[Rfam]
RNA sequence: CUCAUGGCUUGAUGACAUCGCGAAAUUAACCCAUCUUGUUGAGCAAGGUGGCUCCCGUUAAAGUAGCGCCAAUCGGCGGGAGUAAAAUCUCGUGAAUUGCUGGGACGCCCUAAAGCCAACUUGACCACAACGUAGCUGGCAACGGCAAGCGUGACGGUUUAAAAACAAGUUGGAUAGAGCAUGGGCUAUCAGCAGCCAAGCAUCUCUGGAAACGGAGAUGAAGGUUCAGAGACUAUCGAAACUUCCUAAGACAUUCAGUUAUGGAAGGAGUAGACUAAACGUGCGGUAACGCUCGUUUAGGGCACGAGACAAAGAGGAGCACCCUCUUUGAUGAAAUAGUCCGAUCUCUAGUGAAAACUAGAG
Numbered sequence: 001c002u003c004a005u006g007g008c009u010u011g012a013u014g015a016c017a018u019c020g021c022g023a024a025a026u027u028a029a030c031c032c033a034u035c036u037u038g039u040u041g042a043g044c045a046a047g048g049u050g051g052c053u054c055c056c057g058u059u060a061a062a063g064u065a066g067c068g069c070c071a072a073u074c075g076g077c078g079g080g081a082g083u084a085a086a087a088u089c090u091c092g093u094g095a096a097u098u099g100c101u102g103g104g105a106c107g108c109c110c111u112a113a114a115g116c117c118a119a120c121u122u123g124a125c126c127a128c129a130a131c132g133u134a135g136c137u138g139g140c141a142a143c144g145g146c147a148a149g150c151g152u153g154a155c156g157g158u159u160u161a162a163a164a165a166c167a168a169g170u171u172g173g174a175u176a177g178a179g180c181a182u183g184g185g186c187u188a189u190c191a192g193c194a195g196c197c198a199a200g201c202a203u204c205u206c207u208g209g210a211a212a213c214g215g216a217g218a219u220g221a222a223g224g225u226u227c228a229g230a231g232a233c234u235a236u237c238g239a240a241a242c243u244u245c246c247u248a249a250g251a252c253a254u255u256c257a258g259u260u261a262u263g264g265a266a267g268g269a270g271u272a273g274a275c276u277a278a279a280c281g282u283g284c285g286g287u288a289a290c291g292c293u294c295g296u297u298u299a300g301g302g303c304a305c306g307a308g309a310c311a312a313a314g315a316g317g318a319g320c321a322c323c324c325u326c327u328u329u330g331a332u333g334a335a336a337u338a339g340u341c342c343g344a345u346c347u348c349u350a351g352u353g354a355a356a357a358c359u360a361g362a363g
Stems, first nucleotide, its partner, number of pairs: 005045001007044009049057003088309004093304002098194006108185003195225002206215003229342001231341005312328006348361005

This 363-nucleotide RNA from [Anoxybacillus] calidus belongs to the Rfam family "Group I catalytic intron". The family has 12 seed sequences and 5,602 matches in Rfam 15.1. Rfam's curators write: Group I catalytic introns are large self-splicing ribozymes. They catalyse their own excision from mRNA, tRNA and rRNA precursors in a wide range of organisms. The core secondary structure consists of 9 paired regions (P1-P9). These fold to essentially two domains - the P4-P6 domain (formed from the stacking of P5, P4, P6 and P6a helices) and the P3-P9 domain (formed from the P8, P3, P7 and P9 helices). The secondary structure mark-up for this family represents only this conserved core. Group I catalytic introns often have long ORFs inserted in loop regions. The window size for this search is chosen to minimise search time and catch the small examples. A larger window size will find more matches.